[Rfam]
RNA: Glycine riboswitch aptamer
Organism: Actinomadura craniellae
RNA sequence: CGACCCGAAGCGGGAGAGUCCGCCCCCGCAAGGGAGCGGCGCCGAAGGAGCAACUCUCCCCAGAAUCUCUCAGGCCCCGUACCGCUUCGGUGAG
Numbered sequence: 001c002g003a004c005c006c007g008a009a010g011c012g013g014g015a016g017a018g019u020c021c022g023c024c025c026c027c028g029c030a031a032g033g034g035a036g037c038g039g040c041g042c043c044g045a046a047g048g049a050g051c052a053a054c055u056c057u058c059c060c061c062a063g064a065a066u067c068u069c070u071c072a073g074g075c076c077c078c079g080u081a082c083c084g085c086u087u088c089g090g091u092g093a094g
Base pairs, nucleotide, nucleotide: 006089007088008087009086010085011084012083013082020039021038022037023036041075042074043073044071045070048069049068050067054063055062
Dot-bracket structure: .....((((((((......((((............)))).(((((..(((...((......))...))))).)))......)))))))).....